Rfam assigns this 178-nucleotide sequence from Brasilonema sennae to the family "Antisense RNA which regulates isiA expression". The source organism's lineage runs through Bacteria, Cyanobacteriota, Nostocales, Brasilonema and Brasilonema sennae.
[Rfam]
RNA sequence: AGUAGCCGAAGAUUGUCUUUGGGUCAAGAGUAGGAUUGGUAAUCAGGUGGACAUUUCCAAUGUUGGUGUCAUAAAUUCCACCAAAAAACAUUGCUUUGAGCACCAGUAGCAAUGCACCAAAACCUAGAAAAAUCAGAUGAUGACCUAAGAUGAAACCCAAUUUCUUGAGAUCGUUCCA
Dot-bracket structure: .......................................................................................................................................((((((..(.(((................))).)))))))...